Source information
A member of the RNA family "Bacterial small subunit ribosomal RNA" from Porphyromonas sp. COT-290 OH860, 579 nucleotides of a longer RNA.
RNA sequence: UGACGGGGGCCCGCACAAGCGGAGGAACAUGUGGUUUAAUUCGAUGAUACGCGAGGAACCUUACCCGGGAUUGAAAUGUAGAUGACAUAUGGUGAAAGCCGUUUUCCCUUCGGGGCAUCUAUGUAGGUGCUGCAUGGUUGUCGUCAGCUCGUGCCGUGAGGUGUCGGCUUAAGUGCCAUAACGAGCGCAACCCCUGUCCUUGGUUGCCAUCAGGUUAUGCUGGGAACUCCGAGGAGACUGCCGUCGUAAGGCGUGAGGAAGGUGGGGAUGACGUCAAAUCAGCACGGCCCUUACAUCCGGGGCGACACACGUGUUACAAUGGGGAGGACAAAGGGCAGCUACUGGGCGACCAGAUGCGAAUCUCUAAACCUCUUCACAGUUCGGAUUGGAGUCUGCAACUCGACUCCAUGAAGCUGGAUUCGCUAGUAAUCGCGCAUCAGCCAUGGCGCGGUGAAUACGUUCCCGGGCCUUGUACACACCGCCCGUCAAGCCAUGGGAGUCUGGAGUACCUAAAGUCCGUAACCGCGAGAGUCGUAACAAGGUAGCCGUACCGGAAGGUGCGGCUGGAACACCUCCUUU
Numbered sequence: 001u002g003a004c005g006g007g008g009g010c011c012c013g014c015a016c017a018a019g020c021g022g023a024g025g026a027a028c029a030u031g032u033g034g035u036u037u038a039a040u041u042c043g044a045u046g047a048u049a050c051g052c053g054a055g056g057a058a059c060c061u062u063a064c065c066c067g068g069g070a071u072u073g074a075a076a077u078g079u080a081g082a083u084g085a086c087a088u089a090u091g092g093u094g095a096a097a098g099c100c101g102u103u104u105u106c107c108c109u110u111c112g113g114g115g116c117a118u119c120u121a122u123g124u125a126g127g128u129g130c131u132g133c134a135u136g137g138u139u140g141u142c143g144u145c146a147g148c149u150c151g152u153g154c155c156g157u158g159a160g161g162u163g164u165c166g167g168c169u170u171a172a173g174u175g176c177c178a179u180a181a182c183g184a185g186c187g188c189a190a191c192c193c194c195u196g197u198c199c200u201u202g203g204u205u206g207c208c209a210u211c212a213g214g215u216u217a218u219g220c221u222g223g224g225a226a227c228u229c230c231g232a233g234g235a236g237a238c239u240g241c242c243g244u245c246g247u248a249a250g251g252c253g254u255g256a257g258g259a260a261g262g263u264g265g266g267g268a269u270g271a272c273g274u275c276a277a278a279u280c281a282g283c284a285c286g287g288c289c290c291u292u293a294c295a296u297c298c299g300g301g302g303c304g305a306c307a308c309a310c311g312u313g314u315u316a317c318a319a320u321g322g323g324g325a326g327g328a329c330a331a332a333g334g335g336c337a338g339c340u341a342c343u344g345g346g347c348g349a350c351c352a353g354a355u356g357c358g359a360a361u362c363u364c365u366a367a368a369c370c371u372c373u374u375c376a377c378a379g380u381u382c383g384g385a386u387u388g389g390a391g392u393c394u395g396c397a398a399c400u401c402g403a404c405u406c407c408a409u410g411a412a413g414c415u416g417g418a419u420u421c422g423c424u425a426g427u428a429a430u431c432g433c434g435c436a437u438c439a440g441c442c443a444u445g446g447c448g449c450g451g452u453g454a455a456u457a458c459g460u461u462c463c464c465g466g467g468c469c470u471u472g473u474a475c476a477c478a479c480c481g482c483c484c485g486u487c488a489a490g491c492c493a494u495g496g497g498a499g500u501c502u503g504g505a506g507u508a509c510c511u512a513a514a515g516u517c518c519g520u521a522a523c524c525g526c527g528a529g530a531g532u533c534g535u536a537a538c539a540a541g542g543u544a545g546c547c548g549u550a551c552c553g554g555a556a557g558g559u560g561c562g563g564c565u566g567g568a569a570c571a572c573c574u575c576c577u578u579u
Stems, first nucleotide, its partner, number of pairs: 001476002003473003007470007015460002019423005024317001026315008034306002040055004064301006076124003080120005087104001089102005106115003126290002129288004135284002137279003140275001142273002147186006153162003166177003192267004197235007207224002211222003238258002241255001242253004321375007333364003338357002343352003382413001387408007429452007479541001481538001484534002492527001494525003499520002543566010